Mammalian CPEB3 ribozyme: an 85-nucleotide RNA from Gadus morhua. Taxonomically the source falls in Gadus (Eukaryota, Eumetazoa, Bilateria, Gnathostomata). Pairs were carried over by alignment from the consensus structure, which is taken from published work.
[Rfam]
RNA sequence: AUCAUUCCUCUGGGGAUCACGGUAGGAGCGUUUACGUCGCAAUCCCUGUGAAUUUAUAUCACCAAUACUACUUGGGAAUUCUACC
Numbered sequence: 001a002u003c004a005u006u007c008c009u010c011u012g013g014g015g016a017u018c019a020c021g022g023u024a025g026g027a028g029c030g031u032u033u034a035c036g037u038c039g040c041a042a043u044c045c046c047u048g049u050g051a052a053u054u055u056a057u058a059u060c061a062c063c064a065a066u067a068c069u070a071c072u073u074g075g076g077a078a079u080u081c082u083a084c085c
Stems, first nucleotide, its partner, number of pairs: 013046005021085007028040003051073002